[Rfam]
RNA sequence: GCCGGACCCGACCCGAUCGGGUGGCUCGGCCGGGCGCCAAUCCCCCGGACAACU
Numbered sequence: 001g002c003c004g005g006a007c008c009c010g011a012c013c014c015g016a017u018c019g020g021g022u023g024g025c026u027c028g029g030c031c032g033g034g035c036g037c038c039a040a041u042c043c044c045c046c047g048g049a050c051a052a053c054u
Stems, first nucleotide, its partner, number of pairs: 006022006030048005

Overview
The family of this 54-nucleotide RNA from Sphingomonas xanthus is "sul1 RNA". The family has 54 seed sequences and 519 matches in Rfam 15.1. A search with the family's covariance model found it, with a score of 58 bits.